[Rfam]
RNA sequence: GUCAGGCUGUAACAGCAAAUCAAAAGUGUUUUGAAUCCUAACACCUAUUUUGAUUUGCUGUUACAGCCUGAC
Numbered sequence: 001g002u003c004a005g006g007c008u009g010u011a012a013c014a015g016c017a018a019a020u021c022a023a024a025a026g027u028g029u030u031u032u033g034a035a036u037c038c039u040a041a042c043a044c045c046u047a048u049u050u051u052g053a054u055u056u057g058c059u060g061u062u063a064c065a066g067c068c069u070g071a072c
Base pairs, nucleotide, nucleotide: 001072002071003070005068006067007066010065011062012061013060014059015058016057017056018055020052022051023050024049025048026044
Description: A member of the RNA family "mir-16 microRNA precursor family" from Pelusios castaneus, 72 nucleotides long. A reference for the family is Jin et al. (2020), "Structural Basis for pri-miRNA Recognition by Drosha", Mol Cell. Taxonomically the source falls in Pelusios (Eukaryota, Metazoa, Gnathostomata, Sauropsida).